Description
Shown here is a 108-nucleotide sequence from Medicago truncatula, a member of the family "MIR398 microRNA precursor family". For this family Rfam cites "Novel and stress-regulated microRNAs and other small RNAs from Arabidopsis" (Sunkar and Zhu, Plant Cell, 2004). The base pairs follow the family's consensus structure, which was predicted with WAR.
RNA sequence: GGUUGACUCAAAGGGGUGACCUGAGAACACAAAAUCAACUAGUAACAACCAAAUACAUUAUAUGAUUAAUCAAUCUUGUGUUCUCAGUGUCACUCCUCUGAGAUAGAA
Numbered sequence: 001g002g003u004u005g006a007c008u009c010a011a012a013g014g015g016g017u018g019a020c021c022u023g024a025g026a027a028c029a030c031a032a033a034a035u036c037a038a039c040u041a042g043u044a045a046c047a048a049c050c051a052a053a054u055a056c057a058u059u060a061u062a063u064g065a066u067u068a069a070u071c072a073a074u075c076u077u078g079u080g081u082u083c084u085c086a087g088u089g090u091c092a093c094u095c096c097u098c099u100g101a102g103a104u105a106g107a108a
Stems, first nucleotide, its partner, number of pairs: 007102002012097003016093004023085010